The family of this 71-nucleotide sequence from Xenorhabdus szentirmaii is "MicA sRNA". The base pairs follow the family's consensus structure, which was predicted with WAR. On this family, see Argaman et al., Curr Biol 2001: "Novel small RNA-encoding genes in the intergenic regions of Escherichia coli". Its family is annotated with mRNA binding in the Gene Ontology. The family's RNA type in Rfam is small RNA.
RNA sequence: GAAGACGCGCAAAAUUGUUAUCAUCCCUAUUCUCUGAGAUAUUUUAUUUGGCCACCUUUGGUGGCCACUUU
Number, nucleotide and partner (000 for none) at each position: 001g000002a000003a000004g000005a000006c000007g000008c000009g000010c000011a000012a000013a000014a000015u000016u000017g000018u000019u000020a000021u000022c000023a040024u039025c038026c000027c000028u036029a035030u000031u000032c000033u000034c000035u029036g028037a000038g025039a024040u023041a000042u000043u000044u000045u000046a000047u000048u000049u000050g066051g065052c064053c063054a062055c061056c060057u000058u000059u000060g056061g055062u054063g053064g052065c051066c050067a000068c000069u000070u000071u000